[Rfam]
RNA sequence: GAAAUCUGAGGACGGAACGGGCAGCCGUCGCCCAUUGUUAGGAGAUGCGGGAGUGUCACCCCGCCUGUUUC
Numbered sequence: 001g002a003a004a005u006c007u008g009a010g011g012a013c014g015g016a017a018c019g020g021g022c023a024g025c026c027g028u029c030g031c032c033c034a035u036u037g038u039u040a041g042g043a044g045a046u047g048c049g050g051g052a053g054u055g056u057c058a059c060c061c062c063g064c065c066u067g068u069u070u071c
Base pairs, nucleotide, nucleotide: 001071002070003069004068005067008065011029012028013027014026015025020057021056022055023054031042032037047064048063049062050061051060
A member of the RNA family "skipping-rope RNA" from Blautia sp. OF03-15BH, 71 nucleotides long.
It is annotated as a small RNA.